[Rfam]
RNA sequence: AGAGUUGGUGGCUAGGGUUCCGGCGCUUUCAUGGCGUGCUGGUCCGAGAGCCACCACCGGUCGGGAGAGAAAUCCCGCCGGGUGCACGGCGGGAGAAAAGCCCGGGAGAC
Dot-bracket structure: ......((((((..((...((((((((.....))))).).)).))....))))))(((.(.(((((......))))).).))).(.[...(((.......))).)..]..
Numbered sequence: 001a002g003a004g005u006u007g008g009u010g011g012c013u014a015g016g017g018u019u020c021c022g023g024c025g026c027u028u029u030c031a032u033g034g035c036g037u038g039c040u041g042g043u044c045c046g047a048g049a050g051c052c053a054c055c056a057c058c059g060g061u062c063g064g065g066a067g068a069g070a071a072a073u074c075c076c077g078c079c080g081g082g083u084g085c086a087c088g089g090c091g092g093g094a095g096a097a098a099a100g101c102c103c104g105g106g107a108g109a110c
Stems, first nucleotide, its partner, number of pairs: 007055006015045002020042002022039001023037005056083003060079001062077005085105001087108001091103003